[Rfam]
RNA sequence: GGGUGCAGUCGGUAGGCGAAGCUACCACAUGGACAUGGGUUGCUGCCGCAAAGGAAUGGAGACACUCCGCGCUGGUCAGCAGUCCCCGUCGAAUCAAGGCGGGGACUAACGCAAUCCCGAACGCCAUGCGAAGCCGAAGCUUGAACGACCGGAGUCUCAA
Numbered sequence: 001g002g003g004u005g006c007a008g009u010c011g012g013u014a015g016g017c018g019a020a021g022c023u024a025c026c027a028c029a030u031g032g033a034c035a036u037g038g039g040u041u042g043c044u045g046c047c048g049c050a051a052a053g054g055a056a057u058g059g060a061g062a063c064a065c066u067c068c069g070c071g072c073u074g075g076u077c078a079g080c081a082g083u084c085c086c087c088g089u090c091g092a093a094u095c096a097a098g099g100c101g102g103g104g105a106c107u108a109a110c111g112c113a114a115u116c117c118c119g120a121a122c123g124c125c126a127u128g129c130g131a132a133g134c135c136g137a138a139g140c141u142u143g144a145a146c147g148a149c150c151g152g153a154g155u156c157u158c159a160a
Stems, first nucleotide, its partner, number of pairs: 005156001009152002011146001013097001015141003021134002026130001028128005039115005046074001048072002055066001057064002082106004088100003
This 160-nucleotide sequence from Bifidobacterium actinocoloniiforme belongs to the Rfam family "M-box riboswitch aptamer (ykoK leader)". The literature on the family includes a 2011 paper in J Mol Biol by Ramesh et al., "Insights into metalloregulation by M-box riboswitch RNAs via structural analysis of manganese-bound complexes". About the family: M-box riboswitch, also know as ykoK leader is described as a metaloregulatory RNA that sense divalent metals and function as a genetic control element of genes related to divalent metal transport in bacteria. It was first reported upstream of the B.subtilis ykoK gene and genes with related functions in other bacteria. It scores 89 bits against the family's covariance model.